[Rfam]
RNA sequence: UAAACGUGGAGUCCAGAGACCACUUACUAAACGGGGCGUAUCCGAAAAGCCAUAUGAAUAGGAAUUUA
Dot-bracket structure: .....((((..........))))...........(((....[[.....))).........]]......

The family of this 68-nucleotide sequence from Flavobacterium silvisoli is "DUF805 RNA". The family's RNA type in Rfam is cis-regulatory element. The match comes from Rfam's covariance-model search (75 bits).